[Rfam]
RNA sequence: AAAUAAGGGCGUAUGGGGAAUGCCUUGGCUCUUAGAGGCGAUGAAAGGCGUGAUAAACUGCGAUAAGUUGCGGGGAUUGGUUUGUACGAAGUGAUCCGCAAAUUUCUGAAUGGGGCAACCCAUGUUACAGCGAUGUAGCAUAUCCCUUAAAAUAUAUUUAAGGGAAGCAAACCUGGGGAACUGAAACAUCUAAGUACCCAGAGGAAGAGAAAACAAAUAGUGAUUCCAUGAGUAGUGGUGAGCGAAAGUGGAGAAGCCCAAACCAUAGCAGUUUUGGCUGGUAUGGGGUUGUAGGGCUAGCGCAACAAAUUAAGCGUGGGAACUUAAAUUACCUGGAAAGGUAAGCCAUAGAAGGUGAAAGCCCUGUCAAGGUAACCAUGUUUGAUUUAGCUAGUACCCUGAGUAGGUCAGUCCUGGUGAAAGGCUGACUGAAUUUGCCGGCACCAUCCGGUAAGGCUAAAUACUCCUAAGAGACCGAUAGUGGACGAGUACCGUGAGGGAAAGGUGAAAAGUACCCUGAAUAAGGGAGUGAAAUAGUACCUGAAACCAUACGCUUACAAG
Numbered sequence: 001a002a003a004u005a006a007g008g009g010c011g012u013a014u015g016g017g018g019a020a021u022g023c024c025u026u027g028g029c030u031c032u033u034a035g036a037g038g039c040g041a042u043g044a045a046a047g048g049c050g051u052g053a054u055a056a057a058c059u060g061c062g063a064u065a066a067g068u069u070g071c072g073g074g075g076a077u078u079g080g081u082u083u084g085u086a087c088g089a090a091g092u093g094a095u096c097c098g099c100a101a102a103u104u105u106c107u108g109a110a111u112g113g114g115g116c117a118a119c120c121c122a123u124g125u126u127a128c129a130g131c132g133a134u135g136u137a138g139c140a141u142a143u144c145c146c147u148u149a150a151a152a153u154a155u156a157u158u159u160a161a162g163g164g165a166a167g168c169a170a171a172c173c174u175g176g177g178g179a180a181c182u183g184a185a186a187c188a189u190c191u192a193a194g195u196a197c198c199c200a201g202a203g204g205a206a207g208a209g210a211a212a213a214c215a216a217a218u219a220g221u222g223a224u225u226c227c228a229u230g231a232g233u234a235g236u237g238g239u240g241a242g243c244g245a246a247a248g249u250g251g252a253g254a255a256g257c258c259c260a261a262a263c264c265a266u267a268g269c270a271g272u273u274u275u276g277g278c279u280g281g282u283a284u285g286g287g288g289u290u291g292u293a294g295g296g297c298u299a300g301c302g303c304a305a306c307a308a309a310u311u312a313a314g315c316g317u318g319g320g321a322a323c324u325u326a327a328a329u330u331a332c333c334u335g336g337a338a339a340g341g342u343a344a345g346c347c348a349u350a351g352a353a354g355g356u357g358a359a360a361g362c363c364c365u366g367u368c369a370a371g372g373u374a375a376c377c378a379u380g381u382u383u384g385a386u387u388u389a390g391c392u393a394g395u396a397c398c399c400u401g402a403g404u405a406g407g408u409c410a411g412u413c414c415u416g417g418u419g420a421a422a423g424g425c426u427g428a429c430u431g432a433a434u435u436u437g438c439c440g441g442c443a444c445c446a447u448c449c450g451g452u453a454a455g456g457c458u459a460a461a462u463a464c465u466c467c468u469a470a471g472a473g474a475c476c477g478a479u480a481g482u483g484g485a486c487g488a489g490u491a492c493c494g495u496g497a498g499g500g501a502a503a504g505g506u507g508a509a510a511a512g513u514a515c516c517c518u519g520a521a522u523a524a525g526g527g528a529g530u531g532a533a534a535u536a537g538u539a540c541c542u543g544a545a546a547c548c549a550u551a552c553g554c555u556u557a558c559a560a561g
Stems, first nucleotide, its partner, number of pairs: 007556010022541001023505002027476002029473007036465002038168002046107003049062003068101007077089003112121003122141007143165009172203001173201005183190002213221002224461001225252005235243002255458004263286005269280001293400003297394005309386011323371003329344005347351001353365003406430008437452005492499002515527004
Dot-bracket structure: ......((((((((((.....(((..(((((((((((((......((((((........))).....(((((((..(((.......))).....)))))))...)))....(((....)))(((((((......))))))).(((((((((.....))))))))).))...((((((.....((....))......))))).).........((.....))..((((((.....((.....))....)))))..((((....(((((.(..........).)))))......(((.(((((.......(((((((((((...(((...(((((......)))))..(...).(((.......)))...)))....)))))))))))...)))))...))).....((((((((.........))))))))......(((((......)))))..))))..)..)).))))))).))...............((....))....)).........((((.....)))).............).....)))))))))).....
A member of the RNA family "Bacterial large subunit ribosomal RNA" from Candidatus Cardinium hertigii, 561 nucleotides of a longer RNA.
Pairs were carried over by alignment from the consensus structure, which is taken from published work.
The source organism's lineage runs through Bacteria, Pseudomonadati, Cytophagia, Amoebophilaceae and Candidatus Cardinium.
A search with the family's covariance model found it, with a score of 2655 bits.